[Rfam]
Nucleotides: 079
Base pairs, nucleotide, nucleotide: 002078003077004076005075008074
Number, partner (000 for none) and nucleotide at each position: 001000a002078g003077c004076u005075u006000g007000u008074u009000g010000a011000u012000g013000a014000u015000g016000u017000u018000u019000c020000u021000u022000a023000u024000u025000a026000a027000a028000a029000a030000u031000g032000u033000c034000u035000g036000a037000a038000c039000a040000u041000a042000u043000g044000a045000a046000c047000u048000c049000c050000a051000u052000a053000a054000u055000a056000a057000u058000u059000u060000c061000g062000g063000u064000g065000c066000a067000u068000u069000a070000c071000u072000g073000a074008g075005a076004a077003g078002c079000u
Shown here is a 79-nucleotide sequence from Ibidorhyncha struthersii, a member of the family "Small nucleolar RNA SNORD72".
By type it is a C/D-box small nucleolar RNA.
NCBI's taxonomy places the organism under Eukaryota, Chordata, Archosauria, Dinosauria, Ibidorhyncha.